[Rfam]
RNA sequence: UACUUAUCAAGAGUGGCGGAGGGACUGGCCCGACGAAGCCCGGCAACCGGUUAGUAUAAUACGGUGCUAAUUCCAGCAGAGCGUUUUGCUCUGAAAGAUAAGAA
Numbered sequence: 001u002a003c004u005u006a007u008c009a010a011g012a013g014u015g016g017c018g019g020a021g022g023g024a025c026u027g028g029c030c031c032g033a034c035g036a037a038g039c040c041c042g043g044c045a046a047c048c049g050g051u052u053a054g055u056a057u058a059a060u061a062c063g064g065u066g067c068u069a070a071u072u073c074c075a076g077c078a079g080a081g082c083g084u085u086u087u088g089c090u091c092u093g094a095a096a097g098a099u100a101a102g103a104a
Base pairs, nucleotide, nucleotide: 001104003102004101005100006099007098008097013041015040016039017038021031022030023029025076026075027074028073042068043067044066045065047064048063049060051058072096077093078092079091080090081089082088